Shown here is a 139-nucleotide RNA sequence from Dipodomys ordii, a member of the family "Small nucleolar RNA SNORD10".
Its family is annotated with nucleolus and RNA processing in the Gene Ontology.
A search with the family's covariance model found it, with a score of 122 bits.
[Rfam]
RNA sequence: GCUCUAUGAUGAAUCCCAUGCGUGUCAUCUGAGCCUAACUUCCCUGUUGUCUUGGGCCCUGUUAGUGUUCUACUUCCCAGGGCUGUCUGGCCUGUCAGGGAAUUUCUGGGCAAAGGAUCAGUCCUUAAAUUCUGAGAGC
Numbered sequence: 001g002c003u004c005u006a007u008g009a010u011g012a013a014u015c016c017c018a019u020g021c022g023u024g025u026c027a028u029c030u031g032a033g034c035c036u037a038a039c040u041u042c043c044c045u046g047u048u049g050u051c052u053u054g055g056g057c058c059c060u061g062u063u064a065g066u067g068u069u070c071u072a073c074u075u076c077c078c079a080g081g082g083c084u085g086u087c088u089g090g091c092c093u094g095u096c097a098g099g100g101a102a103u104u105u106c107u108g109g110g111c112a113a114a115g116g117a118u119c120a121g122u123c124c125u126u127a128a129a130u131u132c133u134g135a136g137a138g139c
Stems, first nucleotide, its partner, number of pairs: 001139004042100005048094002